[Rfam]
RNA sequence: GUAAAGAUGUUGAGUAGGAGAAGUAAAUCUACACUACUUUACAGAGAGAAAUCAUCAUAGGCUGAAAGUGAUUUCAAAGAAUAGGUAGAUUGAAAUGCACCUAGGAGUCAUUGCUUGAAAUACAGUAGAGCUAAUCGGGAGGUCCCGUUAUAGGCCUUGUAGUAAAGGGGAAUGAUUUGAUUCAUUCAACCAGAGUGGAACCGCGGAUAAACUUCGUCUCUGUA
Numbered sequence: 001g002u003a004a005a006g007a008u009g010u011u012g013a014g015u016a017g018g019a020g021a022a023g024u025a026a027a028u029c030u031a032c033a034c035u036a037c038u039u040u041a042c043a044g045a046g047a048g049a050a051a052u053c054a055u056c057a058u059a060g061g062c063u064g065a066a067a068g069u070g071a072u073u074u075c076a077a078a079g080a081a082u083a084g085g086u087a088g089a090u091u092g093a094a095a096u097g098c099a100c101c102u103a104g105g106a107g108u109c110a111u112u113g114c115u116u117g118a119a120a121u122a123c124a125g126u127a128g129a130g131c132u133a134a135u136c137g138g139g140a141g142g143u144c145c146c147g148u149u150a151u152a153g154g155c156c157u158u159g160u161a162g163u164a165a166a167g168g169g170g171a172a173u174g175a176u177u178u179g180a181u182u183c184a185u186u187c188a189a190c191c192a193g194a195g196u197g198g199a200a201c202c203g204c205g206g207a208u209a210a211a212c213u214u215c216g217u218c219u220c221u222g223u224a
Base pairs, nucleotide, nucleotide: 007108008107015103016102017101018100026091027090028089029088030087031086037079038078039077048075049074050073051072052071053070054069055068111134112133113131114130115129116128136147137146138145170187171186172185173184174183175182192221193220194219195218203217204216205215206214207213
The record is a 224-nucleotide RNA sequence from Natronincola ferrireducens, which matches "T-box leader" in Rfam. Uncharged tRNA acts as the effector for transcription antitermination of genes in the T-box leader family.